Rfam assigns this 87-nucleotide sequence from Cucurbita maxima to the family "Small nucleolar RNA R16". It is annotated as a C/D-box small nucleolar RNA.
[Rfam]
RNA sequence: AAUGGCAUAUGAUGAACACAUCAUUUUUGCUUAUUGAUAUACUGAUGUUCCGUGCUGAUUCAACUCCGCUUAUUAUCUGAUGCCAUU
Numbered sequence: 001a002a003u004g005g006c007a008u009a010u011g012a013u014g015a016a017c018a019c020a021u022c023a024u025u026u027u028u029g030c031u032u033a034u035u036g037a038u039a040u041a042c043u044g045a046u047g048u049u050c051c052g053u054g055c056u057g058a059u060u061c062a063a064c065u066c067c068g069c070u071u072a073u074u075a076u077c078u079g080a081u082g083c084c085a086u087u
Base pairs, nucleotide, nucleotide: 003085004084005083006082007081
The organism belongs to Cucurbita, within Eukaryota.
The literature on the family includes a 2002 paper in Curr Biol by Marker et al., "Experimental RNomics: identification of 140 candidates for small non-messenger RNAs in the plant Arabidopsis thaliana".
Rfam 15.1 lists 884 matches to the family in 222 species.